This 101-nucleotide sequence from Paenibacillus beijingensis belongs to the Rfam family "Purine riboswitch aptamer". Pairs were carried over by alignment from the consensus structure, which is taken from published work.
[Rfam]
RNA sequence: UUUGUCGAACAUGAUCUGACUCGUAUAACUUCGGGAAUUGGCCCGAAAGUAUCUACCCGGAAACCGUAAAUUACCGGACUACGAGCCAACGGAUAGAGGAA
Numbered sequence: 001u002u003u004g005u006c007g008a009a010c011a012u013g014a015u016c017u018g019a020c021u022c023g024u025a026u027a028a029c030u031u032c033g034g035g036a037a038u039u040g041g042c043c044c045g046a047a048a049g050u051a052u053c054u055a056c057c058c059g060g061a062a063a064c065c066g067u068a069a070a071u072u073a074c075c076g077g078a079c080u081a082c083g084a085g086c087c088a089a090c091g092g093a094u095a096g097a098g099g100a101a
Stems, first nucleotide, its partner, number of pairs: 018087001020085006030047006057077004062072002